[Rfam]
RNA sequence: AAAAAUCAAAGAGGUUGCAACUGACAAGAGUAGGUUAAUUGAACUACUACUUUAGUGAAGAAGUUAGCUGAAAGGGAAAGUUGCCGAGGUGCUAGUAAAAGUGGUUACUGGUGAUCUGGGGCGUGAUUCAAUAGAUCGCGAACUGUCGUAGAUAAACUGCGGAGAGCUUUGAACGUU
Numbered sequence: 001a002a003a004a005a006u007c008a009a010a011g012a013g014g015u016u017g018c019a020a021c022u023g024a025c026a027a028g029a030g031u032a033g034g035u036u037a038a039u040u041g042a043a044c045u046a047c048u049a050c051u052u053u054a055g056u057g058a059a060g061a062a063g064u065u066a067g068c069u070g071a072a073a074g075g076g077a078a079a080g081u082u083g084c085c086g087a088g089g090u091g092c093u094a095g096u097a098a099a100a101g102u103g104g105u106u107a108c109u110g111g112u113g114a115u116c117u118g119g120g121g122c123g124u125g126a127u128u129c130a131a132u133a134g135a136u137c138g139c140g141a142a143c144u145g146u147c148g149u150a151g152a153u154a155a156a157c158u159g160c161g162g163a164g165a166g167c168u169u170u171g172a173a174c175g176u177u
Base pairs, nucleotide, nucleotide: 006172007171008170009169010168011167017084018083019082020081021080022079025076033069034068035067036066037065038064039063040062088117089116091112092111093110094109095108096107097106098105118144119143122140123139124138125137126136127135128134146162147161148160149159150158151157
The family of this 177-nucleotide RNA from Acetilactobacillus jinshanensis is "Lysine riboswitch aptamer". Pairs were carried over by alignment from the consensus structure, which is taken from published work. Rfam links the family to the GO term lysine biosynthetic process. Riboswitches are metabolite binding domains within certain messenger RNAs that serve as precision sensors for their corresponding targets. The match comes from Rfam's covariance-model search (90 bits).